[Rfam]
RNA sequence: GAGCGGAGGGCGCAUAUGAAUCGUAGAUUCAUAUUUAGGAUGCGUCCGACAAUCUGCCGACGAGCGAAGCGAGGGGGCAAUACCCGGG
Numbered sequence: 001g002a003g004c005g006g007a008g009g010g011c012g013c014a015u016a017u018g019a020a021u022c023g024u025a026g027a028u029u030c031a032u033a034u035u036u037a038g039g040a041u042g043c044g045u046c047c048g049a050c051a052a053u054c055u056g057c058c059g060a061c062g063a064g065c066g067a068a069g070c071g072a073g074g075g076g077g078c079a080a081u082a083c084c085c086g087g088g
Stems, first nucleotide, its partner, number of pairs: 008047006016032006056078003061073001064070002